[Rfam]
RNA sequence: UAAGGGUGAUAGCUUCUCUUCCUAGUUCUUCUUGGAAUUGGGAAAAGCUGGCUUGAGACGGUUAAAAAAAAAAAAA
Numbered sequence: 001u002a003a004g005g006g007u008g009a010u011a012g013c014u015u016c017u018c019u020u021c022c023u024a025g026u027u028c029u030u031c032u033u034g035g036a037a038u039u040g041g042g043a044a045a046a047g048c049u050g051g052c053u054u055g056a057g058a059c060g061g062u063u064a065a066a067a068a069a070a071a072a073a074a075a076a
Base pairs, nucleotide, nucleotide: 015058016057017056018055022051023050024049025048029044030043031042032041033040034039
The family of this 76-nucleotide sequence from Nomascus leucogenys is "mir-320 microRNA precursor family". Its family is annotated with cellular response to glucose stimulus, positive regulation of stem cell proliferation and negative regulation of gene expression in the Gene Ontology. NCBI's taxonomy places the organism under Eukaryota, Opisthokonta, Craniata, Boreoeutheria, Nomascus. It scores 59 bits against the family's covariance model. On this family, see Berezikov et al., Genome Res 2006: "Many novel mammalian microRNA candidates identified by extensive cloning and RAKE analysis".